[Rfam]
RNA: c-di-GMP-I riboswitch aptamer
Organism: Geomonas silvestris
RNA sequence: UCCGUGCAAGGGCAAAUCCAUCGGAAGAUGGGGACGCAAAGCAUCAGGUCCCAAGUUCGUGAGAACCGGACGGCUGAGCUACCGGA
Numbered sequence: 001u002c003c004g005u006g007c008a009a010g011g012g013c014a015a016a017u018c019c020a021u022c023g024g025a026a027g028a029u030g031g032g033g034a035c036g037c038a039a040a041g042c043a044u045c046a047g048g049u050c051c052c053a054a055g056u057u058c059g060u061g062a063g064a065a066c067c068g069g070a071c072g073g074c075u076g077a078g079c080u081a082c083c084g085g086a
Stems, first nucleotide, its partner, number of pairs: 012037002017032006040080003045076003048071003055066004